[Rfam]
RNA sequence: GGGAACACGAUGAAGGAGAAAGUACGUUUUUGCCAAGUGCAAAGAGAGGGAUUCCUUGGGCUGAAAGAAUCUCCACAGCGGCAAUAGCGGAAAGCUACUCCAGAGUGCAGCUAAUCCCUGCCGUUCACUUACGUUACAGUGGCCAGAGUGACAGUUUCCAAUGGCUGUAAUUCAUCCUGCAGCGGGUUCGAUGGAAACUGUAACAAGGGUGGUACCGCGAAAUAUCCGUCUUCGUCCCUUAC
Numbered sequence: 001g002g003g004a005a006c007a008c009g010a011u012g013a014a015g016g017a018g019a020a021a022g023u024a025c026g027u028u029u030u031u032g033c034c035a036a037g038u039g040c041a042a043a044g045a046g047a048g049g050g051a052u053u054c055c056u057u058g059g060g061c062u063g064a065a066a067g068a069a070u071c072u073c074c075a076c077a078g079c080g081g082c083a084a085u086a087g088c089g090g091a092a093a094g095c096u097a098c099u100c101c102a103g104a105g106u107g108c109a110g111c112u113a114a115u116c117c118c119u120g121c122c123g124u125u126c127a128c129u130u131a132c133g134u135u136a137c138a139g140u141g142g143c144c145a146g147a148g149u150g151a152c153a154g155u156u157u158c159c160a161a162u163g164g165c166u167g168u169a170a171u172u173c174a175u176c177c178u179g180c181a182g183c184g185g186g187u188u189c190g191a192u193g194g195a196a197a198c199u200g201u202a203a204c205a206a207g208g209g210u211g212g213u214a215c216c217g218c219g220a221a222a223u224a225u226c227c228g229u230c231u232u233c234g235u236c237c238c239u240u241a242c
Base pairs, nucleotide, nucleotide: 007106008105015101016100017099018098025089026088027087028086030084037076038075039074048073049072050071051070052069053068108120109119110118122133123132124131151201152200153199154198155197156196157195158194159193160192206239207238208237209236217235218234219233220232221231

Source information:
The family of this 242-nucleotide sequence from Ureibacillus terrenus is "T-box leader". Rfam classes the family as a cis-regulatory leader. The match comes from Rfam's covariance-model search (96 bits).